[Rfam]
RNA: MIR5272 microRNA precursor family
RNA sequence: UUGGAUGUGAAUUGAUUUAUAUUUGGAUACUCUCACAUAGAAGUGAUUCUUAUGAGUUGAUGUUGUUUGAAUAG
Numbered sequence: 001u002u003g004g005a006u007g008u009g010a011a012u013u014g015a016u017u018u019a020u021a022u023u024u025g026g027a028u029a030c031u032c033u034c035a036c037a038u039a040g041a042a043g044u045g046a047u048u049c050u051u052a053u054g055a056g057u058u059g060a061u062g063u064u065g066u067u068u069g070a071a072u073a074g
Stems, first nucleotide, its partner, number of pairs: 011061008021053002025049004030045001032043002
Dot-bracket structure: ..........((((((((..((..((((.(.((........)).)))))..)))))))))).............